[Rfam]
A member of the RNA family "U2 spliceosomal RNA" from Periconia digitata, 211 nucleotides long. The family has 208 seed sequences and 71,512 matches in Rfam 15.1. The match comes from Rfam's covariance-model search (50 bits). The family's RNA type in Rfam is spliceosomal small nuclear RNA.
RNA sequence: AUCUUCUCUUUGCCAAUACGGCUCUGAUCUGAUGUAGUAUCUGUUCUUGCACAGGGUAACGCCUGCGCAGCUGGACCACGAGAGCCAGUCAACGUUACACCCAAUUUUUUACUCUUUCAGAUCGAGACGGCCUGAAGACUAUGUUGGAAGGUCGUUUCAUGGUCACAGUGUCGCCGCUACCUGCACUACCUGCGGCAUGACGCGAAUGCAC
Dot-bracket structure: ......((...(((.....)))...))....................(((.(((........))).))).((((..(....)..))))...............................(((((.((.............................)).)))))...((((((((((..............)))))..)))))........